[Rfam]
RNA sequence: UACCUGUAACGGGUCUUCACCAGAAGGUGCACCGUCAUCCACACUCACCUCCCUGCCACUACCCUUGCAGGAGCCCAGUUCGAGUCCUGUGGUGUCCACUCCACUCAUUUAGGUAACUAAUGAUGCUGGAUGGACCUAAGCAAUGAAUACAACCAGACGAGGGAAGAAAUUCUGCAGUCGGGUAUUCACCAUGGGACGGCGGCGCUGGAUUACUCCCACGAGGGUUGGGGGGCAAGUGUGGGCUGGGGUAUCGACUGGUAUU
Numbered sequence: 001u002a003c004c005u006g007u008a009a010c011g012g013g014u015c016u017u018c019a020c021c022a023g024a025a026g027g028u029g030c031a032c033c034g035u036c037a038u039c040c041a042c043a044c045u046c047a048c049c050u051c052c053c054u055g056c057c058a059c060u061a062c063c064c065u066u067g068c069a070g071g072a073g074c075c076c077a078g079u080u081c082g083a084g085u086c087c088u089g090u091g092g093u094g095u096c097c098a099c100u101c102c103a104c105u106c107a108u109u110u111a112g113g114u115a116a117c118u119a120a121u122g123a124u125g126c127u128g129g130a131u132g133g134a135c136c137u138a139a140g141c142a143a144u145g146a147a148u149a150c151a152a153c154c155a156g157a158c159g160a161g162g163g164a165a166g167a168a169a170u171u172c173u174g175c176a177g178u179c180g181g182g183u184a185u186u187c188a189c190c191a192u193g194g195g196a197c198g199g200c201g202g203c204g205c206u207g208g209a210u211u212a213c214u215c216c217c218a219c220g221a222g223g224g225u226u227g228g229g230g231g232g233c234a235a236g237u238g239u240g241g242g243c244u245g246g247g248g249u250a251u252c253g254a255c256u257g258g259u260a261u262u
Stems, first nucleotide, its partner, number of pairs: 002014003019259005026252004032246003039241007048232005062224006070216004075208005080202003084197009094135001096133003100130004105123005111118002136140001144188007154181001156179003163172003